[Rfam]
The family of this 90-nucleotide sequence from Candidatus Nitrotoga fabula is "Glycine riboswitch aptamer". Taxonomically the source falls in Candidatus Nitrotoga (Bacteria, Pseudomonadati, Pseudomonadota, Nitrosomonadales). Its family is annotated with glycine biosynthetic process in the Gene Ontology. The base pairs follow the family's consensus structure.
RNA sequence: CAAAUCUGGAGAGUGCUGUAUAUACACAGCCACCGAAGGGGCACACGAUAUUUUCGUAAUCUCUCAGGUAAAGAGGACAGAUGGGGCGAG
Dot-bracket structure: (..(((((......((((........)))).(((((..(((....((.......))....))))).)))........)))))..).....